[Rfam]
RNA sequence: GUGGAAAUAAUGAUUAUUUCCCCAGAUGAUUACCGAGCUAUUUUAUUCUCAUUUAAGAGAAUUCAAGCCAAAAUUCUGAUCCAU
Numbered sequence: 001g002u003g004g005a006a007a008u009a010a011u012g013a014u015u016a017u018u019u020c021c022c023c024a025g026a027u028g029a030u031u032a033c034c035g036a037g038c039u040a041u042u043u044u045a046u047u048c049u050c051a052u053u054u055a056a057g058a059g060a061a062u063u064c065a066a067g068c069c070a071a072a073a074u075u076c077u078g079a080u081c082c083a084u
Base pairs, nucleotide, nucleotide: 001084002083003082004081005080
RNA: Small nucleolar RNA Z103